RNA: c-di-AMP riboswitch aptamer (ydaO/yuaA leader)
Organism: Oceanobacillus zhaokaii
RNA sequence: UAUAUUUUAUCGCUUAAUCUUAUUUUAAGAACGGGGGACCCAAUAUUUACGGCGGAAAUUCCGCGUGGGGUGAAUCCUAUCUAACAGAGGGGCUUACUGUUUCCCAUAGUCCUAACCCGAAAGCUAACCUCGUCAGCGUUUAAGGAAACAAAU
Numbered sequence: 001u002a003u004a005u006u007u008u009a010u011c012g013c014u015u016a017a018u019c020u021u022a023u024u025u026u027a028a029g030a031a032c033g034g035g036g037g038a039c040c041c042a043a044u045a046u047u048u049a050c051g052g053c054g055g056a057a058a059u060u061c062c063g064c065g066u067g068g069g070g071u072g073a074a075u076c077c078u079a080u081c082u083a084a085c086a087g088a089g090g091g092g093c094u095u096a097c098u099g100u101u102u103c104c105c106a107u108a109g110u111c112c113u114a115a116c117c118c119g120a121a122a123g124c125u126a127a128c129c130u131c132g133u134c135a136g137c138g139u140u141u142a143a144g145g146a147a148a149c150a151a152a153u
Base pairs, nucleotide, nucleotide: 011138012137013136014135018030019029020028031133032132033131034130035129036128041067042066068118069117070116076087090112091111092110093109